[Rfam]
RNA sequence: AAAGACUCCGCUCUGCACAAUCCGAACCGGUGAAACAUUGUGCAGAGC
Number, nucleotide and partner (000 for none) at each position: 001a000002a000003a000004g000005a000006c000007u000008c000009c000010g000011c047012u046013c045014u044015g043016c000017a041018c040019a039020a000021u000022c000023c000024g000025a000026a000027c000028c000029g000030g000031u000032g000033a000034a000035a000036c000037a000038u000039u019040g018041u017042g000043c015044a014045g013046a012047g011048c000
RNA: uup RNA